Rfam assigns this 359-nucleotide part of an RNA from Gossypium aridum to the family "Eukaryotic large subunit ribosomal RNA". The organism belongs to Gossypium, within Eukaryota. It scores 2355 bits against the family's covariance model.
RNA sequence: GCGUCACAAUAGUAAUUCAACCUAGUACGAGAAGAAUCAUUGAUUCUCACAAUUGGUCAUUACGCUUGGUUGAAAAGCUACUGGCGCGAAGCUACCGUUCGUUGGAUUAUUACUAAACUCCUCUAAGUUAGAAUCCUGGCUAGAAGCGAUGCACAUGCCCGUCAUCCGAUUGCAGACCCACAGUAGGUGCAGCGAUCGUGGCAGACAAGUCGAAGGCGCCAUCCUUGGAGCGUAAUUCCCACUGAGCAACGGGUAGAAUCCUUUGCAGAUGGCUUAAAUACUCAAUGGGUAUUGUAAGUGGCAGAGUGGCCUUGCUGCCAAGAUCCACUAAGAUUCAGCCCUUUGUCGCUUUGAUUCGU
Number, nucleotide and partner (000 for none) at each position: 001g152002c151003g150004u149005c148006a000007c146008a000009a000010u142011a141012g140013u139014a000015a045016u000017u043018c042019a041020a040021c000022c000023u000024a000025g000026u000027a000028c000029g000030a000031g000032a000033a000034g000035a000036a000037u000038c000039a000040u020041u019042g018043a017044u000045u015046c101047u000048c000049a098050c097051a000052a000053u000054u094055g093056g092057u000058c000059a000060u000061u088062a000063c086064g085065c084066u000067u080068g079069g078070u077071u076072g000073a000074a000075a000076a071077g070078c069079u068080a067081c000082u000083g000084g065085c064086g063087c000088g061089a000090a000091g000092c056093u055094a054095c000096c000097g050098u049099u000100c000101g046102u000103u000104g136105g135106a000107u000108u000109a000110u130111u000112a128113c127114u126115a000116a000117a000118c000119u000120c000121c000122u000123c000124u000125a000126a114127g113128u112129u000130a110131g000132a000133a000134u000135c105136c104137u000138g000139g013140c012141u011142a010143g000144a000145a000146g007147c000148g005149a004150u003151g002152c001153a000154c000155a000156u000157g000158c000159c252160c251161g250162u249163c000164a000165u246166c000167c000168g000169a000170u000171u000172g000173c000174a000175g000176a000177c000178c000179c000180a000181c000182a000183g000184u000185a000186g000187g000188u000189g000190c000191a000192g000193c000194g000195a000196u000197c000198g000199u000200g000201g000202c000203a000204g000205a000206c000207a000208a000209g000210u000211c000212g000213a000214a000215g000216g000217c000218g000219c000220c000221a000222u000223c000224c000225u000226u000227g000228g000229a000230g000231c000232g000233u000234a000235a000236u000237u000238c000239c000240c000241a000242c000243u000244g000245a000246g165247c000248a000249a162250c161251g160252g159253g000254u000255a000256g357257a356258a355259u354260c353261c000262u276263u000264u000265g273266c000267a000268g000269a000270u000271g000272g000273c265274u000275u000276a262277a000278a000279u000280a000281c000282u000283c348284a000285a346286u000287g341288g340289g339290u000291a334292u333293u000294g000295u000296a000297a000298g328299u327300g326301g325302c000303a324304g000305a000306g000307u320308g319309g318310c317311c000312u000313u000314g000315c000316u000317g310318c309319c308320a307321a000322g000323a000324u303325c301326c300327a299328c298329u000330a000331a000332g000333a292334u291335u000336c000337a000338g000339c289340c288341c287342u000343u000344u000345g000346u285347c000348g283349c000350u000351u000352u000353g260354a259355u258356u257357c256358g000359u000